Source information: c-di-GMP-I riboswitch aptamer: a 79-nucleotide RNA from Halanaerobium salsuginis. The match comes from Rfam's covariance-model search (60 bits). Rfam links the family to the GO term cyclic-di-GMP binding.
[Rfam]
Nucleotides: 079
Stems, first nucleotide, its partner, number of pairs: 012037002017032006040073004045069003048064003
Number, partner (000 for none) and nucleotide at each position: 001000u002000a003000c004000a005000u006000a007000u008000a009000u010000g011000g012037g013036c014000a015000a016000a017032g018031c019030u020029g021028u022027u023000g024000u025000g026000a027022a028021g029020c030019a031018g032017c033000g034000a035000c036013g037012c038000a039000a040073a041072g042071c043070c044000a045069u046068g047067g048064g049063u050062c051000u052000u053000c054000u055000u056000a057000g058000u059000u060000a061000a062050g063049a064048u065000u066000g067047c068046c069045a070043g071042g072041u073040u074000g075000c076000a077000c078000u079000u